RNA sequence: UUGGUCUGGGAAUUAGCUGCUGUGUUGCUGACCUCCUGGUUGGCUGUGUAUGCUGCAGCUUGACCCUGACCUAGACUAUAACAGGGUGAGCAUGGAGACGCAGCCCUGGCAGUAACAGGUGUGAGCAUCACCCAGCUGUCUGAUGCUCGUGUAUAAUACUGCACACAAAC
Numbered sequence: 001u002u003g004g005u006c007u008g009g010g011a012a013u014u015a016g017c018u019g020c021u022g023u024g025u026u027g028c029u030g031a032c033c034u035c036c037u038g039g040u041u042g043g044c045u046g047u048g049u050a051u052g053c054u055g056c057a058g059c060u061u062g063a064c065c066c067u068g069a070c071c072u073a074g075a076c077u078a079u080a081a082c083a084g085g086g087u088g089a090g091c092a093u094g095g096a097g098a099c100g101c102a103g104c105c106c107u108g109g110c111a112g113u114a115a116c117a118g119g120u121g122u123g124a125g126c127a128u129c130a131c132c133c134a135g136c137u138g139u140c141u142g143a144u145g146c147u148c149g150u151g152u153a154u155a156a157u158a159c160u161g162c163a164c165a166c167a168a169a170c
Stems, first nucleotide, its partner, number of pairs: 003071004008066003015060006022053001024051002027044004084106003087102002090099001109162006117154001122149003126145004133138001
RNA: Small Cajal body specific RNA 16
Organism: Acipenser ruthenus